About this RNA: Rfam assigns this 102-nucleotide sequence from Gracilibacillus thailandensis to the family "Purine riboswitch aptamer". The match comes from Rfam's covariance-model search (76 bits).

RNA sequence: AGACGUAAUAUAGUGAAAACAUGUAUAAGCUUAGGAAUAUGGCAUAAGCGUUUCUACUUAGCGACCGUAAAUCGCUAAACUAUGUGUGAGGUAACUCCUCCA
Dot-bracket structure: ..................(((((((...(((((.(.......).)))))........(((((((.......)))))))..)))))))...............

The family has 133 seed sequences and 4,097 matches in Rfam 15.1.